[Rfam]
RNA: Actinobacteria sRNA Ms_IGR-7
RNA sequence: GGAAGGUGCUCCUCGAACUGGUUCCGAUAGUUGCUUCGCAACACCUAUCGUCCCAGGUCAGGAGCACUUUUCAGUUCACAACACGGCCGUCGACACCGACACCCGAUGAAAUCUCGAG
Numbered sequence: 001g002g003a004a005g006g007u008g009c010u011c012c013u014c015g016a017a018c019u020g021g022u023u024c025c026g027a028u029a030g031u032u033g034c035u036u037c038g039c040a041a042c043a044c045c046u047a048u049c050g051u052c053c054c055a056g057g058u059c060a061g062g063a064g065c066a067c068u069u070u071u072c073a074g075u076u077c078a079c080a081a082c083a084c085g086g087c088c089g090u091c092g093a094c095a096c097c098g099a100c101a102c103c104c105g106a107u108g109a110a111a112u113c114u115c116g117a118g
Stems, first nucleotide, its partner, number of pairs: 002071011015059002018056004025050004030045001032043002097116003